RNA sequence: AAAGUAACGAAAGACACCAUCCAUAUAAUUUCGACAAUACGGGUCGAGAGUUUCUACAAGAAGCCUUAAACUUCUGAGCUAUGGGUGAAUCCAAAGUUACU
Numbered sequence: 001a002a003a004g005u006a007a008c009g010a011a012a013g014a015c016a017c018c019a020u021c022c023a024u025a026u027a028a029u030u031u032c033g034a035c036a037a038u039a040c041g042g043g044u045c046g047a048g049a050g051u052u053u054c055u056a057c058a059a060g061a062a063g064c065c066u067u068a069a070a071c072u073u074c075u076g077a078g079c080u081a082u083g084g085g086u087g088a089a090u091c092c093a094a095a096g097u098u099a100c101u
Stems, first nucleotide, its partner, number of pairs: 018087008029049007059075005

Purine riboswitch aptamer: a 101-nucleotide RNA sequence from Clostridium gasigenes.
Riboswitches are metabolite binding domains within certain messenger RNAs that serve as precision sensors for their corresponding targets.
The source organism's lineage runs through Bacteria, Bacillati, Clostridia, Eubacteriales and Clostridium.